RNA sequence: UCUGGAUAAACUUGUAUUCAUCCAAGAGAAUGGAGCAAGUCACUUUACAGAAUUAAAAUAAGUAAUACAUUUCAGUAUUGAUAAAGACUUACAUAUAAGUGAAAUUCUGAAAUGAUAGGAUAACCGUAUGUCCUUUAGUACAGUUUGUAUUAUAAAAAUAAUCUUGAUUAACUUUAGUUGAGUUUUCAAGUUACGGUGUG
Numbered sequence: 001u002c003u004g005g006a007u008a009a010a011c012u013u014g015u016a017u018u019c020a021u022c023c024a025a026g027a028g029a030a031u032g033g034a035g036c037a038a039g040u041c042a043c044u045u046u047a048c049a050g051a052a053u054u055a056a057a058a059u060a061a062g063u064a065a066u067a068c069a070u071u072u073c074a075g076u077a078u079u080g081a082u083a084a085a086g087a088c089u090u091a092c093a094u095a096u097a098a099g100u101g102a103a104a105u106u107c108u109g110a111a112a113u114g115a116u117a118g119g120a121u122a123a124c125c126g127u128a129u130g131u132c133c134u135u136u137a138g139u140a141c142a143g144u145u146u147g148u149a150u151u152a153u154a155a156a157a158a159u160a161a162u163c164u165u166g167a168u169u170a171a172c173u174u175u176a177g178u179u180g181a182g183u184u185u186u187c188a189a190g191u192u193a194c195g196g197u198g199u200g
Stems, first nucleotide, its partner, number of pairs: 001051004006046001008044001010040006017034005022028001071111005077105002087100002090097001117134005123197006129158001136152005163190005168181003
RNA: IS605-orfB-I RNA